[Rfam]
RNA sequence: AGGGUUAGUCUUGACCUCUGGUAGCACACAAUUUGUGGAUGAUGGGUACAGGUCUGGAAGUCUGAAGUCUAU
Numbered sequence: 001a002g003g004g005u006u007a008g009u010c011u012u013g014a015c016c017u018c019u020g021g022u023a024g025c026a027c028a029c030a031a032u033u034u035g036u037g038g039a040u041g042a043u044g045g046g047u048a049c050a051g052g053u054c055u056g057g058a059a060g061u062c063u064g065a066a067g068u069c070u071a072u
Stems, first nucleotide, its partner, number of pairs: 002070005
Rfam assigns this 72-nucleotide RNA sequence to the family "Small nucleolar RNA SNORD113/SNORD114 family". The literature on the family includes a 2002 paper in Hum Mol Genet by Cavaille et al., "Identification of tandemly-repeated C/D snoRNA genes at the imprinted human 14q32 domain reminiscent of those at the Prader-Willi/Angelman syndrome region". Rfam 15.1 lists 5,721 matches to the family in 142 species. The imprinted human domain at 14q32 contains two clusters of tandemly repeated small nucleolar RNAs named 14q(I) and 14q(II) snoRNAs. These two clusters are named SNORD113 and SNORD114 respectively in the HGNC approved gene symbol nomenclature. The snoRNAs found in both clusters are clearly related and are represented here by a single family. These snoRNAs are intron encoded and are processed from the tissue-specific non-coding human MEG8 RNA, which lies downstream of the imprinted genes DLK1 and GTL2. snoRNAs 14q(I) and 14q(II) differ from previously identified C/D box snoRNAs in their expression profiles and lack of complementarity to rRNA and snRNA. Homologues of these snoRNAs are found in the imprinted non-coding mouse transcript Rian, and in the rat non-coding Bsr (brain-specific repetitive) RNA. The family is grouped with related families in Rfam's "SNORD74 clan". Its family is annotated with RNA processing and nucleolus in the Gene Ontology. It is one of the family's seed sequences.